[Rfam]
RNA sequence: AAGCAAACUGGUUCUAUCGCUGUUUCGAUUUAUCGGAAGAGAGGAAAGUCCGGGCAACAUAGAGCGACACGCUUCCUAACGGGAAGGCUCCGACUUGUCGGAGACAGAAAGUGCCACAGAAAAUAAACCGUCCCGAUUAAUCGGGAUAAGGGUGAAAACGUGAGGUAAGAGCUCACGGUCUUGUAUGGUGACAUGCAUUACGGUAAACCUCGUGUGUUGAAAAACCAAAUAGGUUGCGGGAACCGAAGGCUGCUCGUCUUCUUCCGACUUGUCGGGAACCGCAAUGGGUAGGUUGAUGGAUCCUAUGAGUGAUUGUAGGGCUAGAUAAAUGAUAGAAUCCCGAUACGUCGGGAACAGAACCCGGCUUACAAGGUUUGCUUCUUU
Numbered sequence: 001a002a003g004c005a006a007a008c009u010g011g012u013u014c015u016a017u018c019g020c021u022g023u024u025u026c027g028a029u030u031u032a033u034c035g036g037a038a039g040a041g042a043g044g045a046a047a048g049u050c051c052g053g054g055c056a057a058c059a060u061a062g063a064g065c066g067a068c069a070c071g072c073u074u075c076c077u078a079a080c081g082g083g084a085a086g087g088c089u090c091c092g093a094c095u096u097g098u099c100g101g102a103g104a105c106a107g108a109a110a111g112u113g114c115c116a117c118a119g120a121a122a123a124u125a126a127a128c129c130g131u132c133c134c135g136a137u138u139a140a141u142c143g144g145g146a147u148a149a150g151g152g153u154g155a156a157a158a159c160g161u162g163a164g165g166u167a168a169g170a171g172c173u174c175a176c177g178g179u180c181u182u183g184u185a186u187g188g189u190g191a192c193a194u195g196c197a198u199u200a201c202g203g204u205a206a207a208c209c210u211c212g213u214g215u216g217u218u219g220a221a222a223a224a225c226c227a228a229a230u231a232g233g234u235u236g237c238g239g240g241a242a243c244c245g246a247a248g249g250c251u252g253c254u255c256g257u258c259u260u261c262u263u264c265c266g267a268c269u270u271g272u273c274g275g276g277a278a279c280c281g282c283a284a285u286g287g288g289u290a291g292g293u294u295g296a297u298g299g300a301u302c303c304u305a306u307g308a309g310u311g312a313u314u315g316u317a318g319g320g321c322u323a324g325a326u327a328a329a330u331g332a333u334a335g336a337a338u339c340c341c342g343a344u345a346c347g348u349c350g351g352g353a354a355c356a357g358a359a360c361c362c363g364g365c366u367u368a369c370a371a372g373g374u375u376u377g378c379u380u381c382u383u384u
Base pairs, nucleotide, nucleotide: 001380002379003378004377005376006375007374008373009372011369012337013336014335015334016333017332018331020041021040023038024037025036026035027034028033046367047366048365050364051363052362053361054360055219056218057217058216062270063269064268067215068214069213070212071211072086073085074084075083076082087105088103089102090101091100092099093098106210107209111208112207113204114203115202128151129150130147131146132145133144134143135142136141159177160176161175162174163173164172182197183196184195185194186193187192223294224293225292226291233285234284235283236282237281238280262277263276264275265274301320302319303318304317305316306315307314308313
RNA: Bacterial RNase P class A
Organism: Sphingobacterium paucimobilis